[Rfam]
RNA sequence: GUUUCUAAUUAUAAUGAUUGAGAACCCAGUGUAGAAGUAACACCAUACUGCUGGGAACAUUACCUAUCAAAGCAUAGUUUAAAAUUUCAAUGAUAGUUGAAGUGGAGAUAUUUUAAUAUUUGGUAACAAAUAUUAAAAACUAACAUAAAUUUGUUAGUGUGUGUGGUAGUGUGUGCUAAAGUAAUUGCAUUAUAAAGUACGGUCUUAUCGCUCUCAUAAUAGACGCUGUUGUACAGAAUAAUCUAAGUUAGUUAUAAAUGUGGUAGUUUAUAAAAACCUUAGAAUACCAAUAAGAGAGUUUGUAGUGAUGUUGUAGUAAUACAACUAUAAGAUAAUUUGACGGUACGAGUAGCCAAAUCUACAAGAUAAAAUUAAGAGCAAAAAAGAGAGCAAAAAACUCAAAUAAUAACUGAAUGGUUGGUGAAAGUUGCAAAUAAUCAAUUUUGCAUAGGUAUAUUAAAUUGUUUUCAAUUCAUAGGUUAUACAGCGUAAGAGUCGCUAUCUUGCGUUCAGGUAUAACUUCCUAUUGACUGAAUAAUAAUGAAGAUUAUGGAAGUAUGGCGAAGGUCACUUGAUUAUUUUGUAAUUAG
Numbered sequence: 001g002u003u004u005c006u007a008a009u010u011a012u013a014a015u016g017a018u019u020g021a022g023a024a025c026c027c028a029g030u031g032u033a034g035a036a037g038u039a040a041c042a043c044c045a046u047a048c049u050g051c052u053g054g055g056a057a058c059a060u061u062a063c064c065u066a067u068c069a070a071a072g073c074a075u076a077g078u079u080u081a082a083a084a085u086u087u088c089a090a091u092g093a094u095a096g097u098u099g100a101a102g103u104g105g106a107g108a109u110a111u112u113u114u115a116a117u118a119u120u121u122g123g124u125a126a127c128a129a130a131u132a133u134u135a136a137a138a139a140c141u142a143a144c145a146u147a148a149a150u151u152u153g154u155u156a157g158u159g160u161g162u163g164u165g166g167u168a169g170u171g172u173g174u175g176c177u178a179a180a181g182u183a184a185u186u187g188c189a190u191u192a193u194a195a196a197g198u199a200c201g202g203u204c205u206u207a208u209c210g211c212u213c214u215c216a217u218a219a220u221a222g223a224c225g226c227u228g229u230u231g232u233a234c235a236g237a238a239u240a241a242u243c244u245a246a247g248u249u250a251g252u253u254a255u256a257a258a259u260g261u262g263g264u265a266g267u268u269u270a271u272a273a274a275a276a277c278c279u280u281a282g283a284a285u286a287c288c289a290a291u292a293a294g295a296g297a298g299u300u301u302g303u304a305g306u307g308a309u310g311u312u313g314u315a316g317u318a319a320u321a322c323a324a325c326u327a328u329a330a331g332a333u334a335a336u337u338u339g340a341c342g343g344u345a346c347g348a349g350u351a352g353c354c355a356a357a358u359c360u361a362c363a364a365g366a367u368a369a370a371a372u373u374a375a376g377a378g379c380a381a382a383a384a385a386g387a388g389a390g391c392a393a394a395a396a397a398c399u400c401a402a403a404u405a406a407u408a409a410c411u412g413a414a415u416g417g418u419u420g421g422u423g424a425a426a427g428u429u430g431c432a433a434a435u436a437a438u439c440a441a442u443u444u445u446g447c448a449u450a451g452g453u454a455u456a457u458u459a460a461a462u463u464g465u466u467u468u469c470a471a472u473u474c475a476u477a478g479g480u481u482a483u484a485c486a487g488c489g490u491a492a493g494a495g496u497c498g499c500u501a502u503c504u505u506g507c508g509u510u511c512a513g514g515u516a517u518a519a520c521u522u523c524c525u526a527u528u529g530a531c532u533g534a535a536u537a538a539u540a541a542u543g544a545a546g547a548u549u550a551u552g553g554a555a556g557u558a559u560g561g562c563g564a565a566g567g568u569c570a571c572u573u574g575a576u577u578a579u580u581u582u583g584u585a586a587u588u589a590g
Base pairs, nucleotide, nucleotide: 007587009585013581014580017577019575021573022572025055026054027053028052029051036049037048038047039046057172058171059170060169061168062167074111075110076109078107079106082103085102086101087100088099089098090097091096112137113136114135115134116133117132118131119130120129121128122127141156142155143154144153145152181571184549186547191541197532200342201341202338205335206334207333208332209331210299211298212297213296214295215294226236227235228234229233242283243282244281245280246279247278252273253272254271255270257268258267259266261289262288263287264286300364301363302362303361304360310325311324312323313322314321346427352422353421354420355419356418410513411512412511433445434444449526450525451524459473478522479521481519486515487510489507490506491505492504493503494502559570560569561568562567
A member of the RNA family "ROOL RNA", 590 nucleotides long. From the family's description: Firmicutes, Fusobacteria (1 example), Tenericutes (1 example). Rfam classes the family as a small RNA.